The record is a 120-nucleotide RNA sequence from Marivirga aurantiaca, which matches "SAM riboswitch aptamer (S box leader)" in Rfam. Rfam describes the family as follows. The SAM riboswitch is found upstream of a number of genes which code for proteins involved in methionine or cysteine biosynthesis in Gram-positive bacteria. The organism belongs to Marivirga, within Bacteria.
RNA sequence: UACUUAUCCAGAAAGACUGAGGGAUUGGGCCCUAUGAAGUCUUAGCAACCCUUCCAUUAUAUGGAAAAGGUGCUAACUCCCAUCCUGACACAUGUAUUGAUGUUCAGGUAAAGAUAAGGA
Numbered sequence: 001u002a003c004u005u006a007u008c009c010a011g012a013a014a015g016a017c018u019g020a021g022g023g024a025u026u027g028g029g030c031c032c033u034a035u036g037a038a039g040u041c042u043u044a045g046c047a048a049c050c051c052u053u054c055c056a057u058u059a060u061a062u063g064g065a066a067a068a069g070g071u072g073c074u075a076a077c078u079c080c081c082a083u084c085c086u087g088a089c090a091c092a093u094g095u096a097u098u099g100a101u102g103u104u105c106a107g108g109u110a111a112a113g114a115u116a117a118g119g120a
Base pairs, nucleotide, nucleotide: 001120003118004117005116006115007114008113013043014042015041016040017039021032022031023030026082027081028080029079044074045073046072047071049070050069052066053065054064055063078112084108085107086106087105088104